[Rfam]
RNA sequence: AAACCCCUGCUGUGUGCGUGAAUAGCUGUUAAGUUUUUGCCAACACAAAAAUUAAGGGAACCUAUCUCCGCCUAUGGCUUGUAAGCCCGCUUCUGUGGGACACAUUAAAUAUGCGGGAGGGCACCCACCUGCUAAGCAGGUUAAAACUACGGCAUCACGGCUCGGUGGGGUUUUU
Dot-bracket structure: .((.((((((((.((.(((............((((((.(((..............(((..(((.(.(.(((.(((.....((...(((((....)))))..)).....))).))))).)))..)))............))).))))))........))))).)))))))).))..
Numbered sequence: 001a002a003a004c005c006c007c008u009g010c011u012g013u014g015u016g017c018g019u020g021a022a023u024a025g026c027u028g029u030u031a032a033g034u035u036u037u038u039g040c041c042a043a044c045a046c047a048a049a050a051a052u053u054a055a056g057g058g059a060a061c062c063u064a065u066c067u068c069c070g071c072c073u074a075u076g077g078c079u080u081g082u083a084a085g086c087c088c089g090c091u092u093c094u095g096u097g098g099g100a101c102a103c104a105u106u107a108a109a110u111a112u113g114c115g116g117g118a119g120g121g122c123a124c125c126c127a128c129c130u131g132c133u134a135a136g137c138a139g140g141u142u143a144a145a146a147c148u149a150c151g152g153c154a155u156c157a158c159g160g161c162u163c164g165g166u167g168g169g170g171u172u173u174u175u
Stems, first nucleotide, its partner, number of pairs: 002173002005170008014161002017159003032148006039141003056126003061121003065117001067116001069115003073111003081103002086099005